[Rfam]
Nucleotides: 074
Stems, first nucleotide, its partner, number of pairs: 001073003005069005011063013025050006032043001034041002
Number, partner (000 for none) and nucleotide at each position: 001073g002072g003071c004000c005069c006068a007067g008066a009065u010000u011063u012062g013061g014060a015059g016058u017057a018056g019055a020054g021053u022052a023051g024000a025050u026049u027048a028047g029046a030045a031000g032043g033000a034041u035040c036000a037000u038000c039000u040035g041034a042000c043032c044000c045030u046029u047028c048027u049026g050025a051023c052022u053021a054020c055019u056018c057017u058016a059015c060014u061013u062012c063011a064000a065009a066008u067007u068006u069005g070000u071003g072002c073001c074000c